[Rfam]
RNA sequence: GUAAUAGCAAACUAGGGUUCCGGCUUCUUGCUUUAGAAGUGUCUGGUCCGAGAGUUUCUGGCUUCAGUAAUAACGAAGCUCCACGGAGGGAUAAAAGCCCGGGAGAA
Numbered sequence: 001g002u003a004a005u006a007g008c009a010a011a012c013u014a015g016g017g018u019u020c021c022g023g024c025u026u027c028u029u030g031c032u033u034u035a036g037a038a039g040u041g042u043c044u045g046g047u048c049c050g051a052g053a054g055u056u057u058c059u060g061g062c063u064u065c066a067g068u069a070a071u072a073a074c075g076a077a078g079c080u081c082c083a084c085g086g087a088g089g090g091a092u093a094a095a096a097g098c099c100c101g102g103g104a105g106a107a
Stems, first nucleotide, its partner, number of pairs: 007059001009057004015049002020046002022043001023040006060080006082102001084105001088100003
Rfam assigns this 107-nucleotide RNA sequence from Nitrosomonas communis to the family "Guanidine-I riboswitch aptamer". A search with the family's covariance model found it, with a score of 88 bits. NCBI's taxonomy places the organism under Bacteria, Pseudomonadota, Betaproteobacteria, Nitrosomonadales, Nitrosomonas.